[Rfam]
Shown here is a 72-nucleotide RNA sequence from Xenorhabdus bovienii, a member of the family "MicA sRNA". The literature on the family includes a 2001 paper in Curr Biol by Argaman et al., "Novel small RNA-encoding genes in the intergenic regions of Escherichia coli". Rfam classes the family as a small RNA. Lineage of the source: Bacteria > Pseudomonadati > Gammaproteobacteria > Xenorhabdus > Xenorhabdus bovienii.
RNA sequence: GAAGACGCGCAAAAUUGUUAUCAUCCCUAUUUUCUAAGAGAUUUUAUUUCGGCCACCACUGGUGGCCAUUUU
Dot-bracket structure: .....................(.((..((.....)).)))..........(((((((...))))))).....